Shown here is a 75-nucleotide sequence from Haemonchus placei, a member of the family "mir-5928 microRNA precursor family". The base pairs follow the family's consensus structure, which was predicted with RNAalifold.

[Rfam]
RNA sequence: GGCAUAAACUCGAAGAAGAGUAGUUUAGUAAGGUCAGAUGAUCCUUCCAGUCUACUCUACUUCAAAUUUGGGCCC
Numbered sequence: 001g002g003c004a005u006a007a008a009c010u011c012g013a014a015g016a017a018g019a020g021u022a023g024u025u026u027a028g029u030a031a032g033g034u035c036a037g038a039u040g041a042u043c044c045u046u047c048c049a050g051u052c053u054a055c056u057c058u059a060c061u062u063c064a065a066a067u068u069u070g071g072g073c074c075c
Base pairs, nucleotide, nucleotide: 001074002073003072005070006069007068008067012063013062014061015060017058018057019056020055021054022053023052025050026049028047030045032043033042034041035040
Annotation:
The source organism's lineage runs through Eukaryota, Eumetazoa, Bilateria, Trichostrongylidae and Haemonchus.